[Rfam]
RNA sequence: AAGCUUCGGGUCUGUGGUUGCAAGUCGAUGCCAGUCGCAGGCGAAACGAUCCACAUAAGCGGGGCAAAGUUCCCGUGAGCAUGGUGCGGCUUAGAUGUAAGCCCGGCCGGGGCGCAAGCCCCGAGAGGAGCAGUAGUGGGGGGCAAAAAUGCCUAGUAGCGAACCUUCCGGCCGGCGGGUGUGGGGGCAAAGACCAGGUCAGCCGAAACUU
Numbered sequence: 001a002a003g004c005u006u007c008g009g010g011u012c013u014g015u016g017g018u019u020g021c022a023a024g025u026c027g028a029u030g031c032c033a034g035u036c037g038c039a040g041g042c043g044a045a046a047c048g049a050u051c052c053a054c055a056u057a058a059g060c061g062g063g064g065c066a067a068a069g070u071u072c073c074c075g076u077g078a079g080c081a082u083g084g085u086g087c088g089g090c091u092u093a094g095a096u097g098u099a100a101g102c103c104c105g106g107c108c109g110g111g112g113c114g115c116a117a118g119c120c121c122c123g124a125g126a127g128g129a130g131c132a133g134u135a136g137u138g139g140g141g142g143g144c145a146a147a148a149a150u151g152c153c154u155a156g157u158a159g160c161g162a163a164c165c166u167u168c169c170g171g172c173c174g175g176c177g178g179g180u181g182u183g184g185g186g187g188c189a190a191a192g193a194c195c196a197g198g199u200c201a202g203c204c205g206a207a208a209c210u211u
Base pairs, nucleotide, nucleotide: 001211002210003209005207006206007205008204009203012202013201014200015196016195017194018193019192028182029181030180031041033091034090035089036088037087038086039085050084051083058076061073062072063071082189103175104174105173106172107171108123109122110121111120112119127168128167129166130165136160137159142153143152144151

The record is a 211-nucleotide RNA, which matches "raiA RNA" in Rfam. Pairs were carried over by alignment from the consensus structure, which is taken from published work. Rfam classes the family as a riboswitch.